Rfam assigns this 214-nucleotide RNA sequence from Ectobacillus ponti to the family "T-box leader".
Lineage of the source: Bacteria > Bacilli > Caryophanales > Bacillaceae > Ectobacillus.
The family has 48 seed sequences and 19,395 matches in Rfam 15.1.
Rfam classes the family as a cis-regulatory leader.
[Rfam]
RNA sequence: CGAACAGCGUUGAUGAAGAAAAGUACGCGCAGGGGACAUCCCAGAGAGCUGACGGUUGGUGCGAGUCAGUAUGAAAGCUGUGCGGAAUGGGCUUCGGAGCUUCCAAACCGAACAUUGGAGUAGGCUUUGGCGAGUGCUCCCCUCGUUACAAAGGGAGAAAGCGGGCCGCAUGUGCGGUCAACGAAGGUGGCACCACGGGUCUCUCGUCCUUUUU
Numbered sequence: 001c002g003a004a005c006a007g008c009g010u011u012g013a014u015g016a017a018g019a020a021a022a023g024u025a026c027g028c029g030c031a032g033g034g035g036a037c038a039u040c041c042c043a044g045a046g047a048g049c050u051g052a053c054g055g056u057u058g059g060u061g062c063g064a065g066u067c068a069g070u071a072u073g074a075a076a077g078c079u080g081u082g083c084g085g086a087a088u089g090g091g092c093u094u095c096g097g098a099g100c101u102u103c104c105a106a107a108c109c110g111a112a113c114a115u116u117g118g119a120g121u122a123g124g125c126u127u128u129g130g131c132g133a134g135u136g137c138u139c140c141c142c143u144c145g146u147u148a149c150a151a152a153g154g155g156a157g158a159a160a161g162c163g164g165g166c167c168g169c170a171u172g173u174g175c176g177g178u179c180a181a182c183g184a185a186g187g188u189g190g191c192a193c194c195a196c197g198g199g200u201c202u203c204u205c206g207u208c209c210u211u212u213u214u
Stems, first nucleotide, its partner, number of pairs: 007100002015095004026084006037073003048070006103129001105127002108124002131145003164179006184211004195207005